[Rfam]
RNA: Ascomycota telomerase RNA, nucleotides 975 to 1128
RNA sequence: UCCCCAACUGGGCUAUUGCCCAGUAGCUUCCUCGCAGAUCUUGCUACAAGUCUGCCGAGAUGAUAACGCGGUUUUUACGGAUGUGUUUUGUCCGCGUGUUAACGCCCUCCUGACUUUCAACGUUUUGGGGAGGAAACAAAAACAAGUCUCCGUU
Numbered sequence: 001u002c003c004c005c006a007a008c009u010g011g012g013c014u015a016u017u018g019c020c021c022a023g024u025a026g027c028u029u030c031c032u033c034g035c036a037g038a039u040c041u042u043g044c045u046a047c048a049a050g051u052c053u054g055c056c057g058a059g060a061u062g063a064u065a066a067c068g069c070g071g072u073u074u075u076u077a078c079g080g081a082u083g084u085g086u087u088u089u090g091u092c093c094g095c096g097u098g099u100u101a102a103c104g105c106c107c108u109c110c111u112g113a114c115u116u117u118c119a120a121c122g123u124u125u126u127g128g129g130g131a132g133g134a135a136a137c138a139a140a141a142a143c144a145a146g147u148c149u150c151c152g153u154u
Base pairs, nucleotide, nucleotide: 007024008023009022010021011020012019013018029063030062031059032058033057034056035054036053037052038051080148081147082146083143084142086141087140088139089138090137091136105133106132107130108129109128110127114122